RNA sequence: AGUAGAGGAAGCUCAUCUGCUUGGUGAAGGUAUAGGUCAUUCUUUCCAUUGUUUCAGGGAAAGUGUGAAAUAAGAGUCUGUGGUUGUCAUCACCUGAUGUCACCUGCCUGAUAUGAAUGAAUUAGCAGCAUUUCUGGGUUAACCCAGUGAAUACAGGUGAGCCUGGCUGAGGACAGGUACAAAAGCACUCCUAGAAGUUCAGGGUCAGCAGGUUUUUUUCUUAGCUCAAUGGGAGAGUUAGGCUUUCUUCCCUUUAGGGUUCUCCUGCCCUACUUCAGGCUACUUCCCCUAUU
Numbered sequence: 001a002g003u004a005g006a007g008g009a010a011g012c013u014c015a016u017c018u019g020c021u022u023g024g025u026g027a028a029g030g031u032a033u034a035g036g037u038c039a040u041u042c043u044u045u046c047c048a049u050u051g052u053u054u055c056a057g058g059g060a061a062a063g064u065g066u067g068a069a070a071u072a073a074g075a076g077u078c079u080g081u082g083g084u085u086g087u088c089a090u091c092a093c094c095u096g097a098u099g100u101c102a103c104c105u106g107c108c109u110g111a112u113a114u115g116a117a118u119g120a121a122u123u124a125g126c127a128g129c130a131u132u133u134c135u136g137g138g139u140u141a142a143c144c145c146a147g148u149g150a151a152u153a154c155a156g157g158u159g160a161g162c163c164u165g166g167c168u169g170a171g172g173a174c175a176g177g178u179a180c181a182a183a184a185g186c187a188c189u190c191c192u193a194g195a196a197g198u199u200c201a202g203g204g205u206c207a208g209c210a211g212g213u214u215u216u217u218u219u220c221u222u223a224g225c226u227c228a229a230u231g232g233g234a235g236a237g238u239u240a241g242g243c244u245u246u247c248u249u250c251c252c253u254u255u256a257g258g259g260u261u262c263u264c265c266u267g268c269c270c271u272a273c274u275u276c277a278g279g280c281u282a283c284u285u286c287c288c289c290u291a292u293u
Stems, first nucleotide, its partner, number of pairs: 001293004007287003012237003016233003026046005066277004076206001077204002085099005100116003105111001118201006239272004244267001

The record is a 293-nucleotide RNA from Pan troglodytes, which matches "Nuclear RNase P" in Rfam. The family's RNA type in Rfam is ribozyme.